[Rfam]
RNA sequence: AAUGGCCAUAGGGCCAUAGAAUGAGCGUUCUCGUUGCGGUCCCUGUCAGGCUCGUCCUACGAAUCCUUCU
Numbered sequence: 001a002a003u004g005g006c007c008a009u010a011g012g013g014c015c016a017u018a019g020a021a022u023g024a025g026c027g028u029u030c031u032c033g034u035u036g037c038g039g040u041c042c043c044u045g046u047c048a049g050g051c052u053c054g055u056c057c058u059a060c061g062a063a064u065c066c067u068u069c070u
Stems, first nucleotide, its partner, number of pairs: 011042005018070004023065002025037003048058003
Record summary
Rfam assigns this 70-nucleotide sequence from Branchiostoma floridae to the family "Mammalian CPEB3 ribozyme". NCBI's taxonomy places the organism under Eukaryota, Eumetazoa, Bilateria, Deuterostomia, Branchiostoma. It scores 42 bits against the family's covariance model.